[Rfam]
RNA sequence: UAUUAAGGGCGUAUGGGGGAUGUCUUGGCAUCAGGAGGCGAUGAUGGGCGUGGAAGUCUGCGAAAUGCCCGGGGGAGUUGACAAACAAACGAUGAUCCCGGGAUGCCCUAGCGAACGCGGUGAACUGAAACAUCUAAGUAACCGCAGGAAGAGAAAGAAAAAUCGAUUUCCUCAGUAGCGGCGAGCGAAAGGGAAAUAGCCCAAACCGUGAAGGUUUCCUUCACGGGGUUGUAGGACCGUUCACAUGGGAAGAUUACUGGGUAGCGGAACCGGUUGGAAAGCCGGGCCAUAGCGGGUGACAGCCCCGUACGCGAAACCUUCGUAAUCGCCCGAGCGGCACCUGAGUAGGUCGGGUCACGUGAAACCCCGACUGAAUCCACGGGGACCAUCCCGUAAGGCUAAAUACUACCUGAUGACCGAUAGUGAACUCAGUAUGGCGACUGAAAGGUGAGAAGAACCCCUGCUAGGGGAGGAAUGUGAACCUGAAACCAUACGCCUACAAG
Numbered sequence: 001u002a003u004u005a006a007g008g009g010c011g012u013a014u015g016g017g018g019g020a021u022g023u024c025u026u027g028g029c030a031u032c033a034g035g036a037g038g039c040g041a042u043g044a045u046g047g048g049c050g051u052g053g054a055a056g057u058c059u060g061c062g063a064a065a066u067g068c069c070c071g072g073g074g075g076a077g078u079u080g081a082c083a084a085a086c087a088a089a090c091g092a093u094g095a096u097c098c099c100g101g102g103a104u105g106c107c108c109u110a111g112c113g114a115a116c117g118c119g120g121u122g123a124a125c126u127g128a129a130a131c132a133u134c135u136a137a138g139u140a141a142c143c144g145c146a147g148g149a150a151g152a153g154a155a156a157g158a159a160a161a162a163u164c165g166a167u168u169u170c171c172u173c174a175g176u177a178g179c180g181g182c183g184a185g186c187g188a189a190a191g192g193g194a195a196a197u198a199g200c201c202c203a204a205a206c207c208g209u210g211a212a213g214g215u216u217u218c219c220u221u222c223a224c225g226g227g228g229u230u231g232u233a234g235g236a237c238c239g240u241u242c243a244c245a246u247g248g249g250a251a252g253a254u255u256a257c258u259g260g261g262u263a264g265c266g267g268a269a270c271c272g273g274u275u276g277g278a279a280a281g282c283c284g285g286g287c288c289a290u291a292g293c294g295g296g297u298g299a300c301a302g303c304c305c306c307g308u309a310c311g312c313g314a315a316a317c318c319u320u321c322g323u324a325a326u327c328g329c330c331c332g333a334g335c336g337g338c339a340c341c342u343g344a345g346u347a348g349g350u351c352g353g354g355u356c357a358c359g360u361g362a363a364a365c366c367c368c369g370a371c372u373g374a375a376u377c378c379a380c381g382g383g384g385a386c387c388a389u390c391c392c393g394u395a396a397g398g399c400u401a402a403a404u405a406c407u408a409c410c411u412g413a414u415g416a417c418c419g420a421u422a423g424u425g426a427a428c429u430c431a432g433u434a435u436g437g438c439g440a441c442u443g444a445a446a447g448g449u450g451a452g453a454a455g456a457a458c459c460c461c462u463g464c465u466a467g468g469g470g471a472g473g474a475a476u477g478u479g480a481a482c483c484u485g486a487a488a489c490c491a492u493a494c495g496c497c498u499a500c501a502a503g
Base pairs, nucleotide, nucleotide: 007498008497009496010495011494012493013492014491015490016489022483023448024447027418028417029415030414031413032412033411034410035409036407037406038112039111046108047107048106049062050061051060068102069101070100071099072098073097074096077090078089079088116147117145118144119143120142121141127134128133157164158163167403168195169194170193171192172191178186179185198400199399200398201397206226207225208224209223210222211221212220233342234341235340238336239335240334241333242332252327253326254325255324256323257322259319260318261317262316264312265311266310270285271284272283273282274281288292294306295305296304348372349371350370351369352368353367354366379394380393381392382391383390436441458470459469460468461467

The family of this 503-nucleotide part of an RNA from Pseudobythopirellula maris is "Bacterial large subunit ribosomal RNA". Lineage of the source: Bacteria > Pseudomonadati > Planctomycetota > Pirellulales > Pseudobythopirellula. Its family is annotated with ribosome and structural constituent of ribosome in the Gene Ontology. The match comes from Rfam's covariance-model search (2675 bits). Rfam 15.1 lists 51,934 matches to the family in 10,816 species.